[Rfam]
RNA sequence: AUUUGCGACUGAAAAAUCGCGUUUAUGUCGUCAUUACGAAAUCGUUGAUUUCCGGCAUAAUCUUAAACAGCGAGACUUGUUUUUUUUAAAAAAACAGGUCUCUUUUU
Number, nucleotide and partner (000 for none) at each position: 001a000002u015003u014004u013005g000006c000007g000008a000009c000010u000011g000012a000013a004014a003015a002016a000017u000018c000019g000020c000021g062022u000023u060024u059025a058026u057027g056028u055029c054030g053031u000032c000033a051034u000035u000036a000037c047038g046039a045040a000041a000042u000043c000044g000045u039046u038047g037048a000049u000050u000051u033052c000053c030054g029055g028056c027057a026058u025059a024060a023061u000062c021063u000064u000065a000066a000067a000068c000069a000070g000071c000072g102073a101074g100075a099076c098077u097078u096079g095080u094081u093082u092083u091084u000085u000086u000087u000088a000089a000090a000091a083092a082093a081094a080095c079096a078097g077098g076099u075100c074101u073102c072103u000104u000105u000106u000107u000